The family of this 125-nucleotide sequence from Prunus armeniaca is "MIR398 microRNA precursor family". The family's consensus secondary structure was predicted with WAR.
RNA sequence: UGGAGCCCCACAGGGGUGACCUGAGAUCACAUGUAUGCAGCAACAGCAGAACCCAAGAGGGCCAUCGUUCGGUCCUGCUGUUCUUUGCAUUCCACGUGUUCUCAGGUCGCCCCUGCAGGGCUUCC
Dot-bracket structure: ......((..((((.((((...((((.(((.(.............................................................).))).))))...)))).))))..))......
For this family Rfam cites "Computational identification of plant microRNAs and their targets, including a stress-induced miRNA" (Jones-Rhoades and Bartel, Mol Cell, 2004). Taxonomically the source falls in Prunus (Eukaryota, Pentapetalae, fabids, Rosales).